[Rfam]
RNA sequence: UCACCUUUGCCAACACUCUGGCCCUUACCAUCCUGUUUUCCGGGAAAUAUUACCCACGGUAAAGGCCUAUUUUGGUGCAAAGAAGAUAAAAUAUCUGACUAAUUACUCACCGCGAUAUCUUUUUAUUUGGAAUUUGAGCCCUUCUUUUCCCUUUCGCGCGGGGAGGGAGGGGCUUGAUUCCGUGGAUAUGGUGGUCCAUCUUUUAUGGUCUACAU
Numbered sequence: 001u002c003a004c005c006u007u008u009g010c011c012a013a014c015a016c017u018c019u020g021g022c023c024c025u026u027a028c029c030a031u032c033c034u035g036u037u038u039u040c041c042g043g044g045a046a047a048u049a050u051u052a053c054c055c056a057c058g059g060u061a062a063a064g065g066c067c068u069a070u071u072u073u074g075g076u077g078c079a080a081a082g083a084a085g086a087u088a089a090a091a092u093a094u095c096u097g098a099c100u101a102a103u104u105a106c107u108c109a110c111c112g113c114g115a116u117a118u119c120u121u122u123u124u125a126u127u128u129g130g131a132a133u134u135u136g137a138g139c140c141c142u143u144c145u146u147u148u149c150c151c152u153u154u155c156g157c158g159c160g161g162g163g164a165g166g167g168a169g170g171g172g173c174u175u176g177a178u179u180c181c182g183u184g185g186a187u188a189u190g191g192u193g194g195u196c197c198a199u200c201u202u203u204u205a206u207g208g209u210c211u212a213c214a215u
Stems, first nucleotide, its partner, number of pairs: 007080003020067004026061004031045004097210004110194004115189006

The record is a 215-nucleotide sequence from Blastomyces gilchristii, which matches "Small nucleolar RNA snR80" in Rfam. Gene Ontology terms of the family: RNA processing and nucleolus. Rfam 15.1 lists 447 matches to the family in 358 species. For this family Rfam cites "Genome-wide searching for pseudouridylation guide snoRNAs: analysis of the Saccharomyces cerevisiae genome" (Schattner et al., Nucleic Acids Res, 2004). The source organism's lineage runs through Eukaryota, Dikarya, leotiomyceta, Onygenales and Blastomyces gilchristii. A search with the family's covariance model found it, with a score of 56 bits.